The record is an 82-nucleotide RNA sequence from Baryphthengus martii, which matches "mir-199 microRNA precursor family" in Rfam. Rfam 15.1 lists 1,828 matches to the family in 648 species. Rfam links the family to the GO terms RISC complex and miRNA-mediated post-transcriptional gene silencing. About the family: This family consists of the microRNA (miRNA) precursor mir-199 which appears to be specific to humans. Animal miRNAs are transcribed as ~70nt precursors and subsequently processed by the Dicer enzyme to give a ~22nt product. In this case the mature sequence comes from the 3' arm of the precursor. The extents of the hairpin precursors are not generally known and are estimated based on hairpin prediction. NCBI's taxonomy places the organism under Eukaryota, Gnathostomata, Sarcopterygii, Saurischia, Baryphthengus. The match comes from Rfam's covariance-model search (93 bits).
RNA sequence: ACUCCGUCUGCCCAGUGUUCAGACUACCUGUUCAGGAGGGUUCGACGUUGUACAGUAGUCUGCACAUUGGUUAGGCCGGGUC
Number, nucleotide and partner (000 for none) at each position: 001a000002c000003u000004c000005c000006g000007u000008c000009u000010g000011c000012c070013c069014a068015g067016u066017g065018u064019u000020c062021a061022g060023a059024c058025u057026a056027c000028c055029u054030g053031u052032u000033c050034a049035g000036g000037a000038g000039g000040g000041u000042u000043c000044g000045a000046c000047g000048u000049u034050g033051u000052a031053c030054a029055g028056u026057a025058g024059u023060c022061u021062g020063c000064a018065c017066a016067u015068u014069g013070g012071u000072u000073a000074g000075g000076c000077c000078g000079g000080g000081u000082c000